[Rfam]
RNA sequence: GUGACAGAAGAGAGUGAGCACCCAUGGUCUUUCUUGCCAAUAAUUAUGUUCGAAGCUAUGUGUGCUCACCCUCUAUCUGUCAU
Numbered sequence: 001g002u003g004a005c006a007g008a009a010g011a012g013a014g015u016g017a018g019c020a021c022c023c024a025u026g027g028u029c030u031u032u033c034u035u036g037c038c039a040a041u042a043a044u045u046a047u048g049u050u051c052g053a054a055g056c057u058a059u060g061u062g063u064g065c066u067c068a069c070c071c072u073c074u075a076u077c078u079g080u081c082a083u
Base pairs, nucleotide, nucleotide: 001083002082003081004080005079006078007077008076010073011072012071014069015068016067017066018065019064020063021062023060024059025058
RNA: mir-156 microRNA precursor family
Organism: Centaurea solstitialis